Description
Shown here is a 110-nucleotide RNA from Durio zibethinus, a member of the family "Small nucleolar RNA snoR97".

RNA sequence: CUAGUAAUUUUGGUUUAGAGUCUGAAAAACUCAAAUAAUGUUGUGUUGUCAUCAGCUUCUUCUCGCUUUUUUUUUUUACGAGAUCGGAGUUAAAUAACAGCACUAAAUUU
Numbered sequence: 001c002u003a004g005u006a007a008u009u010u011u012g013g014u015u016u017a018g019a020g021u022c023u024g025a026a027a028a029a030c031u032c033a034a035a036u037a038a039u040g041u042u043g044u045g046u047u048g049u050c051a052u053c054a055g056c057u058u059c060u061u062c063u064c065g066c067u068u069u070u071u072u073u074u075u076u077u078a079c080g081a082g083a084u085c086g087g088a089g090u091u092a093a094a095u096a097a098c099a100g101c102a103c104u105a106a107a108u109u110u
Stems, first nucleotide, its partner, number of pairs: 043103006054091006061083004
A search with the family's covariance model found it, with a score of 96 bits. The family's consensus secondary structure was predicted with WAR.